[Rfam]
The family of this 116-nucleotide RNA sequence from Caenorhabditis briggsae is "SL2 RNA". Clan: SL clan.
RNA sequence: GGUUUUAACCCAAGUUAACCAAGGUUAGCAUUGAAUUUCGACCUGUCGGAAAAACGAUUGUGUUGAAAAUCGCUAAAUUUUUGGAAUAGCUUCUUCGGGGUAUCCGGGGAGGCGAA
Numbered sequence: 001g002g003u004u005u006u007a008a009c010c011c012a013a014g015u016u017a018a019c020c021a022a023g024g025u026u027a028g029c030a031u032u033g034a035a036u037u038u039c040g041a042c043c044u045g046u047c048g049g050a051a052a053a054a055c056g057a058u059u060g061u062g063u064u065g066a067a068a069a070u071c072g073c074u075a076a077a078u079u080u081u082u083g084g085a086a087u088a089g090c091u092u093c094u095u096c097g098g099g100g101u102a103u104c105c106g107g108g109g110a111g112g113c114g115a116a
Base pairs, nucleotide, nucleotide: 007037008036009033014029015028017026018025019024039065040064041063042062043060045058046057047056091114093112094111095110096109099105100104
This family represents SL2 RNA. SL2 RNA is involved in trans splicing in lower eukaryotes. Trans-splicing is a form of RNA processing. The acquisition of a spliced leader from a SL RNA is a intra-molecular reaction which precisely joins exons derived from separately transcribed RNAs. Gene Ontology term of the family: mRNA trans splicing, via spliceosome. For this family Rfam cites "Trans-spliced leader RNA, 5S-rRNA genes and novel variant orphan spliced-leader of the lymphatic filarial nematode Wuchereria bancrofti, and a sensitive polymerase chain reaction based detection assay" (Dassanayake et al., Gene, 2001).